[Rfam]
RNA: FMN riboswitch aptamer (RFN element)
Organism: Cellulomonas composti
RNA sequence: ACACGUGCUCCGGGGUCGGUGCAAUUCCGAGCCGGCGGUGACAGUCCGCGACCCGCACGGUCCUUCGGGACCGGACGGUUGACCUGGUGGAACUCCAGGACCGACGGUGAAAGUCCGGAUGGGAGGAAGUACGUGG
Numbered sequence: 001a002c003a004c005g006u007g008c009u010c011c012g013g014g015g016u017c018g019g020u021g022c023a024a025u026u027c028c029g030a031g032c033c034g035g036c037g038g039u040g041a042c043a044g045u046c047c048g049c050g051a052c053c054c055g056c057a058c059g060g061u062c063c064u065u066c067g068g069g070a071c072c073g074g075a076c077g078g079u080u081g082a083c084c085u086g087g088u089g090g091a092a093c094u095c096c097a098g099g100a101c102c103g104a105c106g107g108u109g110a111a112a113g114u115c116c117g118g119a120u121g122g123g124a125g126g127a128a129g130u131a132c133g134u135g136g
Stems, first nucleotide, its partner, number of pairs: 003134007010125001017029003031114002033103002035049004044101002053078002083099005105117003